[Rfam]
RNA sequence: UUCAAGAUCGGGAAUGAUGUUCUCCCCUGGGAUUCCAAAACCGCUGUUUCGCUGAUGACGUCUGCUUUUUU
Dot-bracket structure: .........[[[[..((((((.]]]]................((......))....)))))).........
Record summary: Fluoride riboswitch aptamer (crcB RNA motif): a 71-nucleotide RNA from Ruminococcus sp. CAG:330. Pairs were carried over by alignment from the consensus structure, which is taken from published work. NCBI's taxonomy places the organism under Bacteria, Bacillota, Clostridia, Oscillospiraceae, Ruminococcus. A search with the family's covariance model found it, with a score of 40 bits.